The family of this 69-nucleotide RNA sequence from Ooceraea biroi is "mir-8/mir-141/mir-200 microRNA precursor family". Lineage of the source: Eukaryota > Insecta > Eumetabola > Formicidae > Ooceraea. The base pairs follow the family's consensus structure, which was predicted with RNAalifold.
[Rfam]
RNA sequence: GUUUACAUCUUACCGGGCAGCAUUAGAUUGAGAUUAAAGUUUCUAAUACUGUCAGGUAAAGAUGUCGUC
Dot-bracket structure: ..(.((((((((((.(((((.((((((..............)))))).))))).))))).))))).)..
Numbered sequence: 001g002u003u004u005a006c007a008u009c010u011u012a013c014c015g016g017g018c019a020g021c022a023u024u025a026g027a028u029u030g031a032g033a034u035u036a037a038a039g040u041u042u043c044u045a046a047u048a049c050u051g052u053c054a055g056g057u058a059a060a061g062a063u064g065u066c067g068u069c
Stems, first nucleotide, its partner, number of pairs: 003067001005065005010059005016053005022047006